[Rfam]
Shown here is a 145-nucleotide sequence from Devosia sp. LC5, a member of the family "FMN riboswitch aptamer (RFN element)". NCBI's taxonomy places the organism under Bacteria, Pseudomonadota, Hyphomicrobiales, Devosiaceae, Devosia.
RNA sequence: AUUCGUUCUCAGGGCGGGGUGUAAUUCCCCACCGGCGGUAAGGGGGAGACCUCAAGCCCGCGAGCGCCCCACCUCAUGUUGGGGGUCAGCAGAUCCGGUGUGAUUCCGGAGCCGACGGUCAUAGUCCGGAUGAAAGAGAACGGGA
Dot-bracket structure: ..((((((((......(((.......))).[[((((((.................[[))))..((.......................))...(((((.......)))))]])).(((.....]]))).......))))))))..
Description:
The match comes from Rfam's covariance-model search (123 bits).